[Rfam]
Source information:
Shown here is an 84-nucleotide RNA, a member of the family "skipping-rope RNA". It is one of the family's seed sequences.
RNA sequence: GUUAUUUGAGGAUAGAAAGUGGCAGCUAUCACGCCAGAGAUGGUCUUAAAAGCAGAUGUAGGGUACGCCGUCCUACCAAUUAAC
Numbered sequence: 001g002u003u004a005u006u007u008g009a010g011g012a013u014a015g016a017a018a019g020u021g022g023c024a025g026c027u028a029u030c031a032c033g034c035c036a037g038a039g040a041u042g043g044u045c046u047u048a049a050a051a052g053c054a055g056a057u058g059u060a061g062g063g064u065a066c067g068c069c070g071u072c073c074u075a076c077c078a079a080u081u082a083a084c
Base pairs, nucleotide, nucleotide: 001084002083003082004081006079007078008077011030012029013028014027015026020070021069022068023067033044034043035042036041058076059075060074061073062072
The base pairs follow the family's consensus structure, which is taken from published work.